[Rfam]
RNA sequence: UCUCUGGUAACAGGAGUUCUGAAAGAAGCCCGGCGGCAAAGUUCCGGCCUGAGGAACACGAAUCGCAUAUAAGGCCAUAGACGGAGACGAGCGUGCCAGACAGCGCAAAUCAUAAUAGUUGCGGAUGACUGUCUGUGGUAGAUGCGGCAGGUGUAUGGAAUGAAAGAUGUAUGAC
Numbered sequence: 001u002c003u004c005u006g007g008u009a010a011c012a013g014g015a016g017u018u019c020u021g022a023a024a025g026a027a028g029c030c031c032g033g034c035g036g037c038a039a040a041g042u043u044c045c046g047g048c049c050u051g052a053g054g055a056a057c058a059c060g061a062a063u064c065g066c067a068u069a070u071a072a073g074g075c076c077a078u079a080g081a082c083g084g085a086g087a088c089g090a091g092c093g094u095g096c097c098a099g100a101c102a103g104c105g106c107a108a109a110u111c112a113u114a115a116u117a118g119u120u121g122c123g124g125a126u127g128a129c130u131g132u133c134u135g136u137g138g139u140a141g142a143u144g145c146g147g148c149a150g151g152u153g154u155a156u157g158g159a160a161u162g163a164a165a166g167a168u169g170u171a172u173g174a175c
Base pairs, nucleotide, nucleotide: 001016003014004013005012006011028175030173037166041161042160043159044158045157046156047152048151049150050149051148063147064146065145066144067143068142074139075138076137078135079134080133081132082131083130084129086111087110091106092105093104094103
Dot-bracket structure: (.((((....)))).)...........(.(......(...(((((((((((...........((((((.....(((.(((((((.((...((((........))))...)).................))))))).)))..)))))))))))...))))))....)......).)
Description:
A member of the RNA family "Group II catalytic intron D1-D4-3" from Faecalibaculum rodentium, 175 nucleotides long. A search with the family's covariance model found it, with a score of 108 bits. NCBI's taxonomy places the organism under Bacteria, Bacillota, Erysipelotrichia, Erysipelotrichaceae, Faecalibaculum. Gene Ontology term of the family: Group II intron splicing. Group II introns are found in rRNA, tRNA and mRNA of organelles in fungi, plants and protists, and also in mRNA in bacteria.